Overview: Shown here is a 101-nucleotide sequence from Desulfuromonas sp. DDH964, a member of the family "c-di-GMP-I-GGC riboswitch aptamer". On this family, see Weinberg et al., Proc Natl Acad Sci U S A 2017: "Bioinformatic analysis of riboswitch structures uncovers variant classes with altered ligand specificity". The organism belongs to Desulfuromonas, within Bacteria. The family's consensus secondary structure is taken from published work.
RNA sequence: AGCGACAACGGCAAACCCGGAGAAAUCCGGCGACGCAAAGCCACGGGUCCUCGUCAACCUGAACAUUGGUGCAGGUGGAACGGAUAGCCGGGUUACCGAAG
Dot-bracket structure: ..((......((....(((((....)))))...[))..((((.((((((.................................))).])))))))..))...